[Rfam]
RNA sequence: GCUUGAGUGACAUACUUCUUUAUAUGCCCAUAUGAACCUGGCAAACUAUGGAAUGUAAAGAAGUAUGUAUUUCAGGU
Numbered sequence: 001g002c003u004u005g006a007g008u009g010a011c012a013u014a015c016u017u018c019u020u021u022a023u024a025u026g027c028c029c030a031u032a033u034g035a036a037c038c039u040g041g042c043a044a045a046c047u048a049u050g051g052a053a054u055g056u057a058a059a060g061a062a063g064u065a066u067g068u069a070u071u072u073c074a075g076g077u
Stems, first nucleotide, its partner, number of pairs: 007071001010068016028051005

Background: Shown here is a 77-nucleotide RNA from Anolis carolinensis, a member of the family "mir-1 microRNA precursor family". A reference for the family is Lee and Ambros (2001), "An extensive class of small RNAs in Caenorhabditis elegans", Science. Rfam's curators write: This family represents the microRNA (miRNA) mir-1 family. miRNAs are transcribed as ~70nt precursors (modelled here) and subsequently processed by the Dicer enzyme to give a ~22nt product. Taxonomically the source falls in Anolis (Eukaryota, Opisthokonta, Vertebrata, Teleostomi). Rfam links the family to the GO terms miRNA-mediated post-transcriptional gene silencing and RISC complex.